[Rfam]
RNA: Small nucleolar RNA snoR26
RNA sequence: UUAGUAUCAAUGAUGAAUGAAAUCCUUUGUUAUCCUUGCACUUUGAUUGCCAGUGAAGAAAACCAUGGGGAAUUUUAGGCGGAGAUACUU
Numbered sequence: 001u002u003a004g005u006a007u008c009a010a011u012g013a014u015g016a017a018u019g020a021a022a023u024c025c026u027u028u029g030u031u032a033u034c035c036u037u038g039c040a041c042u043u044u045g046a047u048u049g050c051c052a053g054u055g056a057a058g059a060a061a062a063c064c065a066u067g068g069g070g071a072a073u074u075u076u077a078g079g080c081g082g083a084g085a086u087a088c089u090u
Stems, first nucleotide, its partner, number of pairs: 003089006